This 231-nucleotide sequence from Sphenodon punctatus belongs to the Rfam family "Small nucleolar RNA SNORD17". The family has 19 seed sequences and 1,015 matches in Rfam 15.1.

Nucleotides: 231
Base pairs, nucleotide, nucleotide: 010230011229012228013227014223015222021216022215023214024213025212027209028208031205032204036168037167038166039165040163041162043160044159045158046157048153050151051150052149053148054147055087056086057085058084059083062079063078064077066076067075068074090144091143092142093141095139100132101131102129106118107117108116110114171201172200174198175197176196177195179193180192181191182190
Number, partner (000 for none) and nucleotide at each position: 001000g002000u003000g004000a005000a006000g007000u008000g009000a010230u011229g012228a013227u014223g015222u016000u017000u018000a019000u020000c021216c022215a023214u024213u025212c026000u027209u028208u029000g030000a031205g032204u033000g034000u035000u036168g037167c038166u039165g040163c041162u042000c043160u044159g045158c046157c047000c048153u049000c050151u051150c052149u053148g054147c055087a056086g057085c058084a059083c060000c061000a062079g063078a064077u065000u066076c067075c068074u069000g070000u071000u072000c073000u074068a075067g076066g077064g078063u079062c080000u081000c082000u083059g084058u085057g086056c087055u088000g089000u090144g091143c092142a093141g094000c095139c096000u097000c098000c099000a100132g101131c102129c103000u104000u105000u106118c107117a108116g109000u110114g111000u112000u113000u114110u115000u116108c117107u118106g119000u120000g121000g122000g123000u124000u125000g126000u127000c128000a129102g130000u131101g132100u133000c134000u135000g136000u137000c138000u139095g140000u141093c142092u143091g144090u145000c146000u147054g148053c149052a150051g151050g152000c153048a154000u155000a156000a157046g158045g159044c160043a161000c162041a163040g164000c165039c166038a167037g168036c169000a170000a171201g172200g173000c174198u175197a176196g177195a178000g179193c180192c181191u182190c183000u184000c185000u186000c187000u188000g189000g190182g191181g192180g193179g194000c195177u196176c197175u198174g199000u200172c201171u202000c203000a204032g205031c206000c207000a208028a209027g210000a211000u212025g213024a214023a215022u216021g217000a218000u219000g220000c221000u222015g223014u224000c225000u226000g227013a228012u229011u230010a231000g
Background: The match comes from Rfam's covariance-model search (76 bits). Rfam classes the family as a C/D-box small nucleolar RNA. Rfam links the family to the GO terms nucleolus and RNA processing.